[Rfam]
RNA sequence: CACACAUUACCCUGAAACCGCACAUGCGCCGGCACAUCCAGUCGGGUGCCCGUUGAGACAGACGGGUUUCUGGAUGGGGCGCAUGGAGGCUCAAC
Numbered sequence: 001c002a003c004a005c006a007u008u009a010c011c012c013u014g015a016a017a018c019c020g021c022a023c024a025u026g027c028g029c030c031g032g033c034a035c036a037u038c039c040a041g042u043c044g045g046g047u048g049c050c051c052g053u054u055g056a057g058a059c060a061g062a063c064g065g066g067u068u069u070c071u072g073g074a075u076g077g078g079g080c081g082c083a084u085g086g087a088g089g090c091u092c093a094a095c
Stems, first nucleotide, its partner, number of pairs: 023085008035076007048067005
The record is a 95-nucleotide RNA from Thioalkalivibrio sulfidiphilus, which matches "t44 RNA" in Rfam. The family's consensus secondary structure was predicted with LocARNA. Rfam's curators put it in the seed alignment. Lineage of the source: Bacteria > Pseudomonadati > Gammaproteobacteria > Ectothiorhodospiraceae > Thioalkalivibrio sulfidiphilus. For this family Rfam cites "Transcriptome analysis of Escherichia coli using high-density oligonucleotide probe arrays" (Tjaden et al., Nucleic Acids Res, 2002). The family's RNA type in Rfam is small RNA.